Shown here is a 99-nucleotide RNA from Litorimonas cladophorae, a member of the family "Bacterial small signal recognition particle RNA".
The family's RNA type in Rfam is non-coding RNA gene.
The family's consensus secondary structure is taken from published work.
Rfam's curators write: The signal recognition particle (SRP) is a universally conserved ribonucleoprotein involved in the co-translational targeting of proteins to membranes.
The source organism's lineage runs through Bacteria, Alphaproteobacteria, Maricaulales, Robiginitomaculaceae and Litorimonas.

RNA sequence: GGAAGGUCGGCCUGGACGGAAUCCUCGCCAACCCGGUCAGGGCGGGAACGCAGCAGCCGCAACGAGUUCUAUUUUCGGGUCAGGAUCCGGUCUUCCACU
Dot-bracket structure: ...((((((.((((..(((((..((((......((((....(((....)))....))))...))))......)))))...)))).)..)))))......